Shown here is a 105-nucleotide RNA from Microthlaspi erraticum, a member of the family "MIR158 microRNA precursor family".
[Rfam]
RNA sequence: ACACGUUUUCUCGGUGCUUCUUUGUCUAUAUUUCUGGCAAAAAAGUGAUGAUGAGAUCAUUACAUUUUGCCAAAUGUAGACAAAGCAAUACCGUGAUGACGUCAA
Numbered sequence: 001a002c003a004c005g006u007u008u009u010c011u012c013g014g015u016g017c018u019u020c021u022u023u024g025u026c027u028a029u030a031u032u033u034c035u036g037g038c039a040a041a042a043a044a045g046u047g048a049u050g051a052u053g054a055g056a057u058c059a060u061u062a063c064a065u066u067u068u069g070c071c072a073a074a075u076g077u078a079g080a081c082a083a084a085g086c087a088a089u090a091c092c093g094u095g096a097u098g099a100c101g102u103c104a105a
Stems, first nucleotide, its partner, number of pairs: 003102005009096002012093001014091003018087001020085010032074002035072001037070005045063008
Dot-bracket structure: ..(((((.((.(.(((.(.((((((((((..((.(.(((((...((((((((...))))))))..))))).))).)))))))))).).))).).)).)))))...
The literature on the family includes a 2002 paper in Genes Dev by Reinhart et al., "MicroRNAs in plants". NCBI's taxonomy places the organism under Eukaryota, Tracheophyta, Pentapetalae, malvids, Microthlaspi.